[Rfam]
RNA sequence: UUCGGCUUGGCCUACUUCUCUAUGCAGGGAGCGUGGGCGAAAGUCGUU
Numbered sequence: 001u002u003c004g005g006c007u008u009g010g011c012c013u014a015c016u017u018c019u020c021u022a023u024g025c026a027g028g029g030a031g032c033g034u035g036g037g038c039g040a041a042a043g044u045c046g047u048u
Base pairs, nucleotide, nucleotide: 006043007042008041010038011037012036013035014034018031019030020029021028
Source information: The family of this 48-nucleotide sequence from Orthohepacivirus hominis is "Hepatitis C virus stem-loop SL1412 RNA". The family's RNA type in Rfam is cis-regulatory element. HCV_SL1412 is a stem-loop in the coding region of the C (core) gene.